[Rfam]
RNA sequence: AGGAUCAAUGAUGAGUGAUAAAAACUGCGUUAUCUAUCUGUAAUUCCCUCAAAAGGGAUUGAAGAUGGUCAUAUUAUUCUGAGAUCGAUU
Numbered sequence: 001a002g003g004a005u006c007a008a009u010g011a012u013g014a015g016u017g018a019u020a021a022a023a024a025c026u027g028c029g030u031u032a033u034c035u036a037u038c039u040g041u042a043a044u045u046c047c048c049u050c051a052a053a054a055g056g057g058a059u060u061g062a063a064g065a066u067g068g069u070c071a072u073a074u075u076a077u078u079c080u081g082a083g084a085u086c087g088a089u090u
Base pairs, nucleotide, nucleotide: 001090002089003086004085005084
A member of the RNA family "Small nucleolar RNA snoR27" from Camellia sinensis, 90 nucleotides long.
By type it is a C/D-box small nucleolar RNA.
The base pairs follow the family's consensus structure, which was predicted with WAR.
The match comes from Rfam's covariance-model search (64 bits).
Rfam links the family to the GO terms RNA processing and nucleolus.